[Rfam]
RNA sequence: CCACCACUUCCUUCCACUCGGAUCGUCCGGCACGUUCCUGCCGGUAGAAGGGAUGCCUC
Numbered sequence: 001c002c003a004c005c006a007c008u009u010c011c012u013u014c015c016a017c018u019c020g021g022a023u024c025g026u027c028c029g030g031c032a033c034g035u036u037c038c039u040g041c042c043g044g045u046a047g048a049a050g051g052g053a054u055g056c057c058u059c
Base pairs, nucleotide, nucleotide: 010051011050012049013048014047016045027044028043029042030041031040032039